Annotation
Small nucleolar RNA snoR53Y: an 80-nucleotide RNA sequence from Abrus precatorius. Lineage of the source: Eukaryota > Viridiplantae > Spermatophyta > Pentapetalae > Abrus. Rfam classes the family as a C/D-box small nucleolar RNA. The family's consensus secondary structure was predicted with WAR. A search with the family's covariance model found it, with a score of 64 bits. Its family is annotated with nucleolus and RNA processing in the Gene Ontology.
RNA sequence: GUUCCCAAUGAUGCUGUUCAGUUAACCAUGCUAAUACUGAUAUAACUAAAGAUUAUUCCUUUUAUUAUACUGAGGGAACU
Number, nucleotide and partner (000 for none) at each position: 001g079002u078003u077004c076005c075006c000007a000008a000009u000010g000011a000012u000013g000014c000015u000016g000017u000018u000019c000020a000021g000022u000023u000024a000025a000026c000027c000028a000029u000030g000031c000032u000033a000034a000035u000036a000037c000038u000039g000040a000041u000042a000043u000044a000045a000046c000047u000048a000049a000050a000051g000052a000053u000054u000055a000056u000057u000058c000059c000060u000061u000062u000063u000064a000065u000066u000067a000068u000069a000070c000071u000072g000073a000074g000075g005076g004077a003078a002079c001080u000